The record is a 146-nucleotide RNA from Phyllobacterium sp. YR531, which matches "Alphaproteobacterial sRNA ar45" in Rfam. The base pairs follow the family's consensus structure. On this family, see del Val et al., RNA Biol 2012: "A survey of sRNA families in alpha-proteobacteria".

RNA sequence: GCCCAAAGUCGCACGUGCCCAUGGGUGUCCGCCGAUCUUCAUUAUGGUGAGGAAACGGUAUGGUACCUGGAACUAACCCCUCCAGUCAGCUUAGCAGCCAACUGCCAAAGCUGAGGACAUCUGAAGCAACGACGGUGCGGGCCUAG
Numbered sequence: 001g002c003c004c005a006a007a008g009u010c011g012c013a014c015g016u017g018c019c020c021a022u023g024g025g026u027g028u029c030c031g032c033c034g035a036u037c038u039u040c041a042u043u044a045u046g047g048u049g050a051g052g053a054a055a056c057g058g059u060a061u062g063g064u065a066c067c068u069g070g071a072a073c074u075a076a077c078c079c080c081u082c083c084a085g086u087c088a089g090c091u092u093a094g095c096a097g098c099c100a101a102c103u104g105c106c107a108a109a110g111c112u113g114a115g116g117a118c119a120u121c122u123g124a125a126g127c128a129a130c131g132a133c134g135g136u137g138c139g140g141g142c143c144u145a146g
Base pairs, nucleotide, nucleotide: 001142002141003140004139008133009132010131011130016128017127018126023122024121025120026119027118028117029116030115031059032058033057034056037052038051039050040049041048067085068084069083070082071081086114087113088112089111092107094105095104096103097102